[Rfam]
RNA sequence: CAAGGAUCGAUGAUGCAUGUAUUAUCUGCGUUAUCUUUCUGCAACCUUCAGUUCAAGGUGCUGAAGAAUACAUUACCUGCUGAGAUCCCUG
Numbered sequence: 001c002a003a004g005g006a007u008c009g010a011u012g013a014u015g016c017a018u019g020u021a022u023u024a025u026c027u028g029c030g031u032u033a034u035c036u037u038u039c040u041g042c043a044a045c046c047u048u049c050a051g052u053u054c055a056a057g058g059u060g061c062u063g064a065a066g067a068a069u070a071c072a073u074u075a076c077c078u079g080c081u082g083a084g085a086u087c088c089c090u091g
Stems, first nucleotide, its partner, number of pairs: 001091002004088004
Dot-bracket structure: ((.((((.............................................................................)))).))
Shown here is a 91-nucleotide RNA sequence from Digitaria exilis, a member of the family "Small nucleolar RNA snoR27". A search with the family's covariance model found it, with a score of 54 bits. Pairs were carried over by alignment from the consensus structure, which was predicted with WAR. Rfam 15.1 lists 649 matches to the family in 212 species. NCBI's taxonomy places the organism under Eukaryota, Tracheophyta, Poaceae, Panicodae, Digitaria. The family's RNA type in Rfam is C/D-box small nucleolar RNA.